[Rfam]
RNA sequence: AACGCCUGUCCUGGAUCUCUCCCAUCCCCUGGAGCAGAUCUCCGAGCGGGGAUUCCUCCCCAAGUUCCCGCUCCCGGCCCCGUCGAUCCCCCCCUGGUCGACGGGGCUUCUUU
Numbered sequence: 001a002a003c004g005c006c007u008g009u010c011c012u013g014g015a016u017c018u019c020u021c022c023c024a025u026c027c028c029c030u031g032g033a034g035c036a037g038a039u040c041u042c043c044g045a046g047c048g049g050g051g052a053u054u055c056c057u058c059c060c061c062a063a064g065u066u067c068c069c070g071c072u073c074c075c076g077g078c079c080c081c082g083u084c085g086a087u088c089c090c091c092c093c094c095u096g097g098u099c100g101a102c103g104g105g106g107c108u109u110c111u112u113u
Stems, first nucleotide, its partner, number of pairs: 004012001013041006019034004044073011076108008085099004